[Rfam]
RNA sequence: UUGUUGCGGCUAGCUUUGCUAUCGGGGUGAAAAUCCUGAGGAAGUUCCCUGGACAUUGGGCAGAGAGUGUCGACCUGUAAGAGGUGUUCAUCCUAUCAUUAGAGAUCUUAUAGCCAUGUUUGAGCUUGACCUCUGCGAUGGGAUAUACGUCACAUCAGAGUAAUGCAUAAGGCAUUAUCGCAAGAUAAUGAACUUAAUAGGGGCCAUUCAGCCACAACU
Number, nucleotide and partner (000 for none) at each position: 001u000002u000003g218004u217005u216006g215007c000008g213009g212010c211011u210012a000013g000014c171015u170016u169017u167018g166019c165020u000021a000022u039023c038024g037025g036026g035027g034028u033029g000030a000031a000032a000033a028034u027035c026036c025037u024038g023039a022040g000041g000042a000043a000044g204045u203046u000047c202048c201049c200050u199051g000052g000053a000054c000055a000056u000057u000058g000059g071060g070061c069062a068063g000064a000065g000066a000067g000068u062069g061070u060071c059072g000073a085074c084075c083076u082077g000078u000079a000080a000081g000082a076083g075084g074085u073086g000087u000088u143089c142090a000091u000092c000093c000094u140095a139096u138097c137098a000099u135100u000101a000102g000103a134104g133105a132106u000107c000108u000109u000110a000111u000112a000113g000114c000115c000116a126117u000118g000119u123120u000121u000122g000123a119124g000125c000126u116127u000128g000129a000130c000131c000132u105133c104134u103135g099136c000137g097138a096139u095140g094141g000142g089143a088144u000145a000146u000147a000148c000149g000150u000151c000152a000153c000154a000155u000156c000157a000158g000159a000160g000161u000162a000163a000164u000165g019166c018167a017168u000169a016170a015171g014172g000173c190174a189175u188176u187177a186178u185179c000180g000181c000182a000183a000184g000185a178186u177187a176188a175189u174190g173191a000192a000193c000194u000195u000196a000197a000198u000199a050200g049201g048202g047203g045204c044205c000206a000207u000208u000209c000210a011211g010212c009213c008214a000215c006216a005217a004218c003219u000
This 219-nucleotide sequence from Lepeophtheirus salmonis belongs to the Rfam family "RNase MRP". The match comes from Rfam's covariance-model search (55 bits).